[Rfam]
RNA sequence: UUUAUAACUUAUUAGCCAUGCAAAUGGCACUGGCUGGUGAUUAUUUAAUCACCGGCCU
Numbered sequence: 001u002u003u004a005u006a007a008c009u010u011a012u013u014a015g016c017c018a019u020g021c022a023a024a025u026g027g028c029a030c031u032g033g034c035u036g037g038u039g040a041u042u043a044u045u046u047a048a049u050c051a052c053c054g055g056c057c058u
Base pairs, nucleotide, nucleotide: 013029016026032057033056034055035054036053037052038051039050040049041048